[Rfam]
RNA: Small nucleolar RNA snoR2/U65
Organism: Aquilegia coerulea
RNA sequence: GGUCUAAUGCCACGUCUGCGGUAGCUAUGCCAUGACCGUCGAUGCUACAUUAGACCAAUAACAAAUUUCUUUUUUGCAUAUUGAUAGGAACCUGUGGAUUGAAAUAUGCAUUUUUCCAUGGAGCCGUUUAUUGCAAUUACAUUU
Numbered sequence: 001g002g003u004c005u006a007a008u009g010c011c012a013c014g015u016c017u018g019c020g021g022u023a024g025c026u027a028u029g030c031c032a033u034g035a036c037c038g039u040c041g042a043u044g045c046u047a048c049a050u051u052a053g054a055c056c057a058a059u060a061a062c063a064a065a066u067u068u069c070u071u072u073u074u075u076g077c078a079u080a081u082u083g084a085u086a087g088g089a090a091c092c093u094g095u096g097g098a099u100u101g102a103a104a105u106a107u108g109c110a111u112u113u114u115u116c117c118a119u120g121g122a123g124c125c126g127u128u129u130a131u132u133g134c135a136a137u138u139a140c141a142u143u144u
Base pairs, nucleotide, nucleotide: 002055003054004053005052006051007050008049009048013044014043015042016041018039020037021036022035024030025029074136075135076134077133078132087125088124092121093120094119096117097116098115